[Rfam]
RNA sequence: UUGGCUUCAUAAGCGCCAGAACUUGCCGCCGGCGCGCGGCGAGUUGACGAGGUGGAGGUGUUCGGAUGAUCGGCGGGGACCUCCCGGCCCAAUCGGGGCCGUCAGCCGGAAGACAAAUCGCUCAGGGCAACCGGGCGCACAAUACGCCGGCACGAUAAGAU
Number, nucleotide and partner (000 for none) at each position: 001u000002u000003g000004g000005c000006u000007u000008c000009a000010u000011a000012a000013g000014c000015g000016c000017c000018a000019g000020a045021a044022c043023u042024u041025g040026c039027c038028g000029c036030c000031g000032g000033c000034g000035c000036g029037c000038g027039g026040c025041g024042a023043g022044u021045u020046g000047a000048c000049g000050a000051g000052g000053u000054g084055g083056a082057g081058g080059u000060g000061u000062u073063c072064g071065g070066a000067u000068g000069a000070u065071c064072g063073g062074c000075g000076g000077g000078g000079a000080c058081c057082u056083c055084c054085c101086g100087g099088c098089c097090c096091a000092a000093u000094c000095g000096g090097g089098g088099c087100c086101g085102u000103c000104a000105g151106c150107c149108g148109g147110a000111a000112g000113a000114c000115a000116a000117a000118u000119c137120g136121c135122u134123c133124a000125g132126g131127g000128c000129a000130a000131c126132c125133g123134g122135g121136c120137g119138c000139a000140c000141a000142a000143u000144a000145c000146g000147c109148c108149g107150g106151c105152a000153c000154g000155a000156u000157a000158a000159g000160a000161u000
glmS glucosamine-6-phosphate activated ribozyme aptamer: a 161-nucleotide sequence from Cohnella rhizosphaerae.
This entry contains a glucosamine-6-phosphate activated ribozyme that is found in the mRNA for GlmS. GlmS is an enzyme that uses fructose-6-phosphate and glutamine to generate glucosamine-6-phosphate.
Pairs were carried over by alignment from the consensus structure, which is taken from published work.